A member of the RNA family "Glycine riboswitch aptamer" from Marivita geojedonensis, 87 nucleotides long. NCBI's taxonomy places the organism under Bacteria, Pseudomonadota, Alphaproteobacteria, Roseobacteraceae, Marivita. Gene Ontology term of the family: glycine biosynthetic process.
RNA sequence: GCAUCUACGAUGGGAGAACCGGUUCAUCCGGUGCCGAAGGAGCAACCGCCCCCGGAAACUCUCAGGCCGAAGGACCGUCGUGGACAU
Numbered sequence: 001g002c003a004u005c006u007a008c009g010a011u012g013g014g015a016g017a018a019c020c021g022g023u024u025c026a027u028c029c030g031g032u033g034c035c036g037a038a039g040g041a042g043c044a045a046c047c048g049c050c051c052c053c054g055g056a057a058a059c060u061c062u063c064a065g066g067c068c069g070a071a072g073g074a075c076c077g078u079c080g081u082g083g084a085c086a087u
Stems, first nucleotide, its partner, number of pairs: 006082008019031004033067003036063002040061003046054001